[Rfam]
Description
mir-58 microRNA precursor family: an 84-nucleotide sequence from Caenorhabditis briggsae.
RNA sequence: AUCCAUUGCCCUACUAUUCGCAUCUCAUCACUCCAGUAUAUAUAUAUAUAUAUAAGGAUGAGAUCGUUCAGUACGGCAAUGGAA
Numbered sequence: 001a002u003c004c005a006u007u008g009c010c011c012u013a014c015u016a017u018u019c020g021c022a023u024c025u026c027a028u029c030a031c032u033c034c035a036g037u038a039u040a041u042a043u044a045u046a047u048a049u050a051u052a053u054a055a056g057g058a059u060g061a062g063a064u065c066g067u068u069c070a071g072u073a074c075g076g077c078a079a080u081g082g083a084a
Stems, first nucleotide, its partner, number of pairs: 002083009012073004019066002022064008031056002
For this family Rfam cites "An abundant class of tiny RNAs with probable regulatory roles in Caenorhabditis elegans" (Lau et al., Science, 2001). Gene Ontology terms of the family: miRNA-mediated post-transcriptional gene silencing and RISC complex. Rfam's curators put it in the seed alignment.